A member of the RNA family "MIR2617 microRNA precursor family" from Medicago truncatula, 86 nucleotides long. Pairs were carried over by alignment from the consensus structure, which was predicted with RNAalifold.

RNA sequence: AAGUAGUGUGACAUGCCCGUUUGGGAUAUACUCUGAUGUAUUAUUUAUUAUUUAAUUGCUUUGUGAUAACGGGGUGUUACACAUCU
Numbered sequence: 001a002a003g004u005a006g007u008g009u010g011a012c013a014u015g016c017c018c019g020u021u022u023g024g025g026a027u028a029u030a031c032u033c034u035g036a037u038g039u040a041u042u043a044u045u046u047a048u049u050a051u052u053u054a055a056u057u058g059c060u061u062u063g064u065g066a067u068a069a070c071g072g073g074g075u076g077u078u079a080c081a082c083a084u085c086u
Stems, first nucleotide, its partner, number of pairs: 002086002006082009016073006